[Rfam]
RNA sequence: CGUGUGGUGUCUGGCGGAACAAGGCCCGAUAGCGACACGGCCUUCAUUAGAGGU
Number, nucleotide and partner (000 for none) at each position: 001c039002g038003u037004g036005u035006g000007g033008u032009g000010u000011c028012u000013g026014g025015c000016g000017g000018a000019a000020c000021a000022a000023g000024g000025c014026c013027c000028g011029a000030u000031a000032g008033c007034g000035a005036c004037a003038c002039g001040g000041c000042c000043u000044u000045c000046a000047u000048u000049a000050g000051a000052g000053g000054u000